[Rfam]
This 28-nucleotide sequence belongs to the Rfam family "L19-Flavobacteria ribosomal protein leader".
RNA sequence: CAACCUCUGGCGAGCAUCGUGAACGUUG
Numbered sequence: 001c002a003a004c005c006u007c008u009g010g011c012g013a014g015c016a017u018c019g020u021g022a023a024c025g026u027u028g
Stems, first nucleotide, its partner, number of pairs: 001028004008023001010020004

It is one of the family's seed sequences.